Rfam assigns this 106-nucleotide RNA to the family "Streptomyces RNA 5676".
The match comes from Rfam's covariance-model search (77 bits).
Rfam classes the family as a small RNA.
The literature on the family includes a 2011 paper in RNA Biol by Vockenhuber et al., "Deep sequencing-based identification of small non-coding RNAs in Streptomyces coelicolor".
Pairs were carried over by alignment from the consensus structure.
Identified by deep sequencing of transcriptome at the end of exponential growth phase. Appears longer on northern blot than sequencing transcript.

Nucleotides: 106
Base pairs, nucleotide, nucleotide: 004097005096006095007094009093010092018039019038020037021036022035023034024033025032026031043073044072045071046070047069049067051065052064053063054062077088078087079086098105099104
Number, partner (000 for none) and nucleotide at each position: 001000a002000g003000a004097u005096g006095a007094g008000u009093g010092a011000g012000a013000g014000a015000c016000c017000c018039c019038g020037u021036c022035c023034u024033c025032g026031g027000g028000a029000g030000a031026c032025c033024g034023g035022g036021g037020g038019c039018g040000a041000c042000a043073c044072c045071g046070g047069u048000g049067c050000c051065g052064g053063g054062c055000u056000u057000c058000c059000c060000c061000a062054g063053c064052u065051c066000c067049g068000u069047a070046c071045c072044g073043g074000g075000c076000a077088u078087g079086c080000g081000u082000u083000c084000g085000c086079g087078c088077a089000c090000a091000c092010u093009c094007c095006u096005c097004a098105c099104c100000g101000a102000u103000c104099g105098g106000a